[Rfam]
RNA sequence: UUGCGUUAAGGAUAGCAAUGGAAAUCCUUUUUUUGCUGCCAUAAACGGCAAAAAAAGAGUGUAAUGUAUAGCCUGUUAAAAC
Numbered sequence: 001u002u003g004c005g006u007u008a009a010g011g012a013u014a015g016c017a018a019u020g021g022a023a024a025u026c027c028u029u030u031u032u033u034u035g036c037u038g039c040c041a042u043a044a045a046c047g048g049c050a051a052a053a054a055a056a057g058a059g060u061g062u063a064a065u066g067u068a069u070a071g072c073c074u075g076u077u078a079a080a081a082c
Base pairs, nucleotide, nucleotide: 009074010073011072013070014069018065019064023060025058026057029055030054031053032052033051034050035049036048037047038046
The family of this 82-nucleotide RNA is "Flavo-1 RNA". The sequence is in the family's curated seed alignment. Rfam classes the family as a small RNA.